[Rfam]
Description
A member of the RNA family "Small nucleolar RNA SNORD53/SNORD92" from Otus sunia, 84 nucleotides long.

RNA sequence: AUGCAGUGACGAUCUCUUAAAUGGUGUUUUCAUCUCACUGAUAGUUGAAUGAAGAUGUGAAUUUCCUUGGCUGUGUCUGAGCAU
Numbered sequence: 001a002u003g004c005a006g007u008g009a010c011g012a013u014c015u016c017u018u019a020a021a022u023g024g025u026g027u028u029u030u031c032a033u034c035u036c037a038c039u040g041a042u043a044g045u046u047g048a049a050u051g052a053a054g055a056u057g058u059g060a061a062u063u064u065c066c067u068u069g070g071c072u073g074u075g076u077c078u079g080a081g082c083a084u
Stems, first nucleotide, its partner, number of pairs: 001084004

Source information: Clan: SNORD52 clan. The family's RNA type in Rfam is C/D-box small nucleolar RNA. On this family, see Kiss-Laszlo et al., Cell 1996: "Site-specific ribose methylation of preribosomal RNA: a novel function for small nucleolar RNAs".